[Rfam]
Nucleotides: 067
Stems, first nucleotide, its partner, number of pairs: 011049007025039004053067005
Number, partner (000 for none) and nucleotide at each position: 001000a002000g003000u004000g005000g006000a007000u008000g009000a010000u011049g012048u013047u014046a015045g016044a017043c018000u019000a020000a021000a022000c023000c024000c025039g026038u027037c028036a029000c030000g031000u032000c033000c034000c035000u036028u037027g038026a039025c040000a041000a042000c043017g044016u045015c046014u047013a048012a049011c050000u051000g052000a053067c054066c055065u056064a057063c058000u059000u060000c061000c062000u063057g064056u065055a066054g067053g